Source information:
Rfam assigns this 238-nucleotide RNA from Bacillus sp. PK3_68 to the family "T-box leader". Rfam classes the family as a cis-regulatory leader. A search with the family's covariance model found it, with a score of 123 bits. The family has 48 seed sequences and 19,395 matches in Rfam 15.1. For this family Rfam cites "Interaction between the acceptor end of tRNA and the T box stimulates antitermination in the Bacillus subtilis tyrS gene: a new role for the discriminator base" (Grundy et al., J Bacteriol, 1994).
RNA sequence: UGAAAAGCGAAGACCGGGAAGAGUACAAAGAUAGUGCUUGCUUGCAGAGAGGAAAACUCAUGGCUGAAAAGUUUUCCGCAAGAACCCUUUGGAAUGUCCCCCGUGAGCUGCUUCUGUGAACUGUUUAGUAGUGGAAGCCGGUUGCCAGCCGUUAAUGGAUUGAGAGCCAGAUAGGUCUGCCAGUAGGCAGCUGUCUGUGAAAAAAGGUGGUACCGCGAACAACUCCUUCGUCCUUUUG
Numbered sequence: 001u002g003a004a005a006a007g008c009g010a011a012g013a014c015c016g017g018g019a020a021g022a023g024u025a026c027a028a029a030g031a032u033a034g035u036g037c038u039u040g041c042u043u044g045c046a047g048a049g050a051g052g053a054a055a056a057c058u059c060a061u062g063g064c065u066g067a068a069a070a071g072u073u074u075u076c077c078g079c080a081a082g083a084a085c086c087c088u089u090u091g092g093a094a095u096g097u098c099c100c101c102c103g104u105g106a107g108c109u110g111c112u113u114c115u116g117u118g119a120a121c122u123g124u125u126u127a128g129u130a131g132u133g134g135a136a137g138c139c140g141g142u143u144g145c146c147a148g149c150c151g152u153u154a155a156u157g158g159a160u161u162g163a164g165a166g167c168c169a170g171a172u173a174g175g176u177c178u179g180c181c182a183g184u185a186g187g188c189a190g191c192u193g194u195c196u197g198u199g200a201a202a203a204a205a206g207g208u209g210g211u212a213c214c215g216c217g218a219a220c221a222a223c224u225c226c227u228u229c230g231u232c233c234u235u236u237u238g
Base pairs, nucleotide, nucleotide: 007108008107015103016102017101018100026091027090028089029088030087039080040079041078051077052076053075054074055073056072057071058070111137112136113135114134115133116132117131139151140150141149168197169196170195171194172193173192204235205234206233207232215231216230217229218228219227